[Rfam]
Description:
Rfam assigns this 105-nucleotide RNA from Ideonella sp. MAG2 to the family "SAH (S-adenosyl-L-homocysteine) riboswitch aptamer". The base pairs follow the family's consensus structure, which is taken from published work. It scores 56 bits against the family's covariance model.
RNA sequence: UUGUUCGAGGAGCGUUGCGAGGCCCGCCCACUGCGGUGUGAGGCCCCAGGCUCGAACACAUCAAGCCAGUGCCCAGCACUGAUUUGGCAACGGCGCUCACCCGCA
Numbered sequence: 001u002u003g004u005u006c007g008a009g010g011a012g013c014g015u016u017g018c019g020a021g022g023c024c025c026g027c028c029c030a031c032u033g034c035g036g037u038g039u040g041a042g043g044c045c046c047c048a049g050g051c052u053c054g055a056a057c058a059c060a061u062c063a064a065g066c067c068a069g070u071g072c073c074c075a076g077c078a079c080u081g082a083u084u085u086g087g088c089a090a091c092g093g094c095g096c097u098c099a100c101c102c103g104c105a
Stems, first nucleotide, its partner, number of pairs: 002058007021045004